A member of the RNA family "Group II catalytic intron D1-D4-2" from Acidithrix ferrooxidans, 107 nucleotides long. Pairs were carried over by alignment from the consensus structure. From the family's description: Group II introns are found in rRNA, tRNA and mRNA of organelles in fungi, plants and protists, and also in mRNA in bacteria. The family has 144 seed sequences and 1,231 matches in Rfam 15.1.
RNA sequence: GGAGGUAGGCCUUCCGAGAUCACCUUUUGGGAGGAAAUUUCAAACCACCCUGCGGGGGCGCUGACUAUUCUGAGUCAGUUGAGAAAAGCACCUCUUGAGGUGCUUGG
Dot-bracket structure: (((((.....)))))(((((..((((....))))..)))))....(..((((.((.(..........).))....)))..).....((((((......))))))..)
Numbered sequence: 001g002g003a004g005g006u007a008g009g010c011c012u013u014c015c016g017a018g019a020u021c022a023c024c025u026u027u028u029g030g031g032a033g034g035a036a037a038u039u040u041c042a043a044a045c046c047a048c049c050c051u052g053c054g055g056g057g058g059c060g061c062u063g064a065c066u067a068u069u070c071u072g073a074g075u076c077a078g079u080u081g082a083g084a085a086a087a088g089c090a091c092c093u094c095u096u097g098a099g100g101u102g103c104u105u106g107g
Stems, first nucleotide, its partner, number of pairs: 001015005016041005023034004046107001049081001050078003054071002057068001087104006